This 102-nucleotide sequence from Homo sapiens belongs to the Rfam family "Y RNA". The family's consensus secondary structure is taken from published work. It scores 52 bits against the family's covariance model. Rfam classes the family as a non-coding RNA gene.
RNA sequence: AGCUAGUCUGAGUGCAGUCGUGUUUACAACUAAUUGAUCACAACCAGUUACAUAUUUAUUUGUUCUUUUUCUAUUCCCACUGUUUCAUUCUACUAGCCUUUG
Dot-bracket structure: .((((((..((..(.(((.(.(.....(((.((.........................)).)))...........)).)))....)..)).)))))).....